[Rfam]
Rfam assigns this 180-nucleotide RNA from Bacillus sp. 1NLA3E to the family "Lysine riboswitch aptamer". The literature on the family includes a 2003 paper in Nucleic Acids Res by Rodionov et al., "Regulation of lysine biosynthesis and transport genes in bacteria: yet another RNA riboswitch?". NCBI's taxonomy places the organism under Bacteria, Bacillati, Bacillota, Bacilli, Bacillus. Its family is annotated with lysine biosynthetic process in the Gene Ontology. The base pairs follow the family's consensus structure, which is taken from published work. Riboswitches are metabolite binding domains within certain messenger RNAs that serve as precision sensors for their corresponding targets.
RNA sequence: AGUGAGGAUAGAGGCGCAAAGACCAAUAGUACACAAUCUUAGGAUGAUGAGAUCCAGUGACGAUUGUAGAAAGGGGAAUUUGCCGAAGUGAAAAGAACCUCAUUGUUCUUAAAACUGGGUCUGCUAUUGAAUAAAUGCAGAACUGUCAUAUAGGAAACUAUAUGGAGGGCUAUCUCACGC
Dot-bracket structure: .....((((((....(((((..((........((((((.......................)))))).......))..)))))...(((...((((((......))))))...)))((.(((((..(......)..))))).)).(((((((......)))))))....)))))).....
Numbered sequence: 001a002g003u004g005a006g007g008a009u010a011g012a013g014g015c016g017c018a019a020a021g022a023c024c025a026a027u028a029g030u031a032c033a034c035a036a037u038c039u040u041a042g043g044a045u046g047a048u049g050a051g052a053u054c055c056a057g058u059g060a061c062g063a064u065u066g067u068a069g070a071a072a073g074g075g076g077a078a079u080u081u082g083c084c085g086a087a088g089u090g091a092a093a094a095g096a097a098c099c100u101c102a103u104u105g106u107u108c109u110u111a112a113a114a115c116u117g118g119g120u121c122u123g124c125u126a127u128u129g130a131a132u133a134a135a136u137g138c139a140g141a142a143c144u145g146u147c148a149u150a151u152a153g154g155a156a157a158c159u160a161u162a163u164g165g166a167g168g169g170c171u172a173u174c175u176c177a178c179g180c
Stems, first nucleotide, its partner, number of pairs: 006175006016083005023076002033067006087116003093110006117144002120141005127134001146165007